[Rfam]
RNA sequence: UGCACGCUAAGAAGGGACAUACUGGUAGAGCAGUCUCAUGCCUCACCACUUUUAUAGUUGCUCUACCAGUAUUGUUAUGCUGCAACGACG
Number, nucleotide and partner (000 for none) at each position: 001u000002g000003c000004a000005c000006g083007c000008u082009a081010a000011g000012a000013a000014g000015g000016g076017a075018c074019a073020u071021a070022c069023u068024g067025g066026u065027a064028g000029a062030g061031c060032a059033g000034u000035c057036u056037c000038a000039u000040g000041c000042c000043u000044c000045a000046c000047c000048a000049c000050u000051u000052u000053u000054a000055u000056a036057g035058u000059u032060g031061c030062u029063c000064u027065a026066c025067c024068a023069g022070u021071a020072u000073u019074g018075u017076u016077a000078u000079g000080c000081u009082g008083c006084a000085a000086c000087g000088a000089c000090g000

The record is a 90-nucleotide sequence from Trichonephila clavata, which matches "Wolbachia sRNA 59" in Rfam.